[Rfam]
RNA sequence: GCAUGGGUUUGGAUUAUGACAGGCCCAUCCCCCUGGACCUCUCAUAGUGCCCCAUGCCAGAGCAAACUGUGGCCCCGAACCAUUGCCUGGCUUCUGUACCCGUGGGCCACUGGCACUGAAGAGGGUUACACAGUG
Numbered sequence: 001g002c003a004u005g006g007g008u009u010u011g012g013a014u015u016a017u018g019a020c021a022g023g024c025c026c027a028u029c030c031c032c033c034u035g036g037a038c039c040u041c042u043c044a045u046a047g048u049g050c051c052c053c054a055u056g057c058c059a060g061a062g063c064a065a066a067c068u069g070u071g072g073c074c075c076c077g078a079a080c081c082a083u084u085g086c087c088u089g090g091c092u093u094c095u096g097u098a099c100c101c102g103u104g105g106g107c108c109a110c111u112g113g114c115a116c117u118g119a120a121g122a123g124g125g126u127u128a129c130a131c132a133g134u135g
Stems, first nucleotide, its partner, number of pairs: 001057004005052004014047006021040003024036002070128006081118002086113002088109006
RNA: Small nucleolar RNA SNORA42/SNORA80 family